Shown here is a 58-nucleotide sequence from Tessaracoccus sp. OH4464_COT-324, a member of the family "Actino-pnp RNA".
Taxonomically the source falls in Tessaracoccus (Bacteria, Actinomycetota, Propionibacteriales, Propionibacteriaceae).
It is annotated as a cis-regulatory element.

[Rfam]
Nucleotides: 058
Stems, first nucleotide, its partner, number of pairs: 001058007009050005017042005023036004
Number, partner (000 for none) and nucleotide at each position: 001058u002057u003056c004055g005054g006053u007052c008000c009050u010049c011048g012047g013046u014000a015000g016000u017042g018041g019040u020039u021038u022000u023036c024035g025034g026033g027000c028000g029000u030000g031000g032000u033026c034025c035024c036023g037000c038021g039020a040019g041018c042017c043000u044000c045000g046013a047012u048011c049010g050009a051000a052007g053006a054005c055004c056003g057002g058001g